[Rfam]
About this RNA
The family of this 83-nucleotide RNA sequence from Trogon melanurus is "Small nucleolar RNA SNORD45". The match comes from Rfam's covariance-model search (60 bits). The base pairs follow the family's consensus structure, which was predicted with PFOLD. Taxonomically the source falls in Trogon (Eukaryota, Sarcopterygii, Amniota, Theropoda). Its family is annotated with RNA processing and nucleolus in the Gene Ontology. The literature on the family includes a 2002 paper in Mol Cell Biol by Galardi et al., "Purified box C/D snoRNPs are able to reproduce site-specific 2'-O-methylation of target RNA in vitro".
RNA sequence: GGUCCAUGAUGAGUUUUGGCAUGUAUUAUCUGAGUGCAAAUUUGAAGAUUAUCAGUUUAGCUCUAGCAUUACUCUGAGACCGG
Numbered sequence: 001g002g003u004c005c006a007u008g009a010u011g012a013g014u015u016u017u018g019g020c021a022u023g024u025a026u027u028a029u030c031u032g033a034g035u036g037c038a039a040a041u042u043u044g045a046a047g048a049u050u051a052u053c054a055g056u057u058u059a060g061c062u063c064u065a066g067c068a069u070u071a072c073u074c075u076g077a078g079a080c081c082g083g
Stems, first nucleotide, its partner, number of pairs: 001081004